Background: A member of the RNA family "mir-30 microRNA precursor family" from Takifugu rubripes, 76 nucleotides long.
[Rfam]
RNA sequence: UCAGGAAGUGUAAACAUCCUACACUCUCGGCGUCCGCCCCCUGGUGGCCGGGGGUGGGACUGUUUGCACUGCCUGA
Numbered sequence: 001u002c003a004g005g006a007a008g009u010g011u012a013a014a015c016a017u018c019c020u021a022c023a024c025u026c027u028c029g030g031c032g033u034c035c036g037c038c039c040c041c042u043g044g045u046g047g048c049c050g051g052g053g054g055u056g057g058g059a060c061u062g063u064u065u066g067c068a069c070u071g072c073c074u075g076a
Stems, first nucleotide, its partner, number of pairs: 002075004008069009017059004023055009
The sequence is in the family's curated seed alignment. On this family, see Lagos-Quintana et al., Science 2001: "Identification of novel genes coding for small expressed RNAs". Rfam's curators write: This family consists of the mammalian microRNA (miRNA) precursor mir-30a. Animal miRNAs are transcribed as ~70nt precursors and subsequently processed by the Dicer enzyme to give a ~22nt product. In this case the mature sequence comes from both the 3' (miR-30) and 5' (mir-97-6) arms of the precursor. The extents of the hairpin precursors are not generally known and are estimated based on hairpin prediction. The products are thought to have regulatory roles through complementarity to mRNA. The involvement of Dicer in miRNA processing suggests a relationship with the phenomenon of RNA interference. miRNAs are numbered based on the sequence of the mature RNA.